[Rfam]
RNA sequence: GGCUGGCCUAGCUCGACGGAGCGAAAAGCGGACUUCCCACCCGCCUGACCAGCCGAUUUAUUCAGGA
Numbered sequence: 001g002g003c004u005g006g007c008c009u010a011g012c013u014c015g016a017c018g019g020a021g022c023g024a025a026a027a028g029c030g031g032a033c034u035u036c037c038c039a040c041c042c043g044c045c046u047g048a049c050c051a052g053c054c055g056a057u058u059u060a061u062u063c064a065g066g067a
Stems, first nucleotide, its partner, number of pairs: 001054006008047001011022004028044004035067003